RNA sequence: UGUGCCGGGGUAAGUCUUUUACGACCAGCUCCUCUUGAAUUCCCCCAGGGUGGGAACGCAGCAAGGGUAGAGGGUUGUAGCGGUGCGAUAAAAGGUGCUUACCCUUUU
Numbered sequence: 001u002g003u004g005c006c007g008g009g010g011u012a013a014g015u016c017u018u019u020u021a022c023g024a025c026c027a028g029c030u031c032c033u034c035u036u037g038a039a040u041u042c043c044c045c046c047a048g049g050g051u052g053g054g055a056a057c058g059c060a061g062c063a064a065g066g067g068u069a070g071a072g073g074g075u076u077g078u079a080g081c082g083g084u085g086c087g088a089u090a091a092a093a094g095g096u097g098c099u100u101a102c103c104c105u106u107u108u
Stems, first nucleotide, its partner, number of pairs: 008104008017093005022087002024084002